A member of the RNA family "Group II catalytic intron D1-D4-6" from Desulfobulbus sp. Tol-SR, 236 nucleotides long. A search with the family's covariance model found it, with a score of 150 bits. From the family's description: Group II introns are found in rRNA, tRNA and mRNA of organelles in fungi, plants and protists, and also in mRNA in bacteria.
RNA sequence: GAAGCCCGUCCCGGAAGGUCUAGCCAACCACCGGGUAGUGAGUCCUUGGACCGUAGCGGGUAACUGAUGCGGUUAAGCGUAGGAUAGCCAGACGACAGGCCGUAAGCCGUAAGGUUGAAGUGAUUGAGCCCCGAAAUGCUCGAGUCGGGAAGGAUGACGUGGUUGCAAGCACGGAAAUCAACAUGGAGCCGGCGAUAGUGGCGAGCCGGAUUUCGCUUCCUCGGGGUCUGAGAGCA
Numbered sequence: 001g002a003a004g005c006c007c008g009u010c011c012c013g014g015a016a017g018g019u020c021u022a023g024c025c026a027a028c029c030a031c032c033g034g035g036u037a038g039u040g041a042g043u044c045c046u047u048g049g050a051c052c053g054u055a056g057c058g059g060g061u062a063a064c065u066g067a068u069g070c071g072g073u074u075a076a077g078c079g080u081a082g083g084a085u086a087g088c089c090a091g092a093c094g095a096c097a098g099g100c101c102g103u104a105a106g107c108c109g110u111a112a113g114g115u116u117g118a119a120g121u122g123a124u125u126g127a128g129c130c131c132c133g134a135a136a137u138g139c140u141c142g143a144g145u146c147g148g149g150a151a152g153g154a155u156g157a158c159g160u161g162g163u164u165g166c167a168a169g170c171a172c173g174g175a176a177a178u179c180a181a182c183a184u185g186g187a188g189c190c191g192g193c194g195a196u197a198g199u200g201g202c203g204a205g206c207c208g209g210a211u212u213u214c215g216c217u218u219c220c221u222c223g224g225g226g227u228c229u230g231a232g233a234g235c236a
Stems, first nucleotide, its partner, number of pairs: 010035005017029003021204001023202002038088002042085001044083003047079002049074007057066003125230001126228001128227006147221006153179003158173004184215005189209005